[Rfam]
RNA sequence: UUCGUGCAUCAAGAGAAGGACUGACGUCCUCACCAACCUGCCGACCUGGGCAAGGUGGUGCCAGAACCGAUACAGGAAACAUUUUGUUUAAGUCAAUAAUGUCGAU
Dot-bracket structure: .....(.(((....(.(((((....))))))(((..((((((.[[.[.))).))).))).........))).)...((((.....)))).........].]]....
SAM-I/IV (S-adenosyl methionine) riboswitch aptamer: a 106-nucleotide RNA sequence from Hahella chejuensis. The base pairs follow the family's consensus structure, which is taken from published work. NCBI's taxonomy places the organism under Bacteria, Pseudomonadati, Gammaproteobacteria, Hahella, Hahella chejuensis. Rfam 15.1 lists 567 matches to the family in 508 species.